[Rfam]
RNA sequence: UAAUUAUGAAGAGUGGCACGAUGAGAUCUGGCUCGAUGACUGCCCAGCAACCUUUUCCAAAAGGUGCUAAUGCCAGCCCUAAGGGAACCAUGAGGU
Numbered sequence: 001u002a003a004u005u006a007u008g009a010a011g012a013g014u015g016g017c018a019c020g021a022u023g024a025g026a027u028c029u030g031g032c033u034c035g036a037u038g039a040c041u042g043c044c045c046a047g048c049a050a051c052c053u054u055u056u057c058c059a060a061a062a063g064g065u066g067c068u069a070a071u072g073c074c075a076g077c078c079c080u081a082a083g084g085g086a087a088c089c090a091u092g093a094g095g096u
Base pairs, nucleotide, nucleotide: 004093005092006091007090008089013045015044016043017042018041023034024033025032028076029075030074031073046068047067048066049065051064052063055060072088077085078084079083
A member of the RNA family "SAM riboswitch aptamer (S box leader)" from a Desulfobacteraceae bacterium, 96 nucleotides long. The base pairs follow the family's consensus structure, which is taken from published work. Taxonomically the source falls in Desulfobacteraceae (Bacteria, Pseudomonadati, Thermodesulfobacteriota, Desulfobacteria).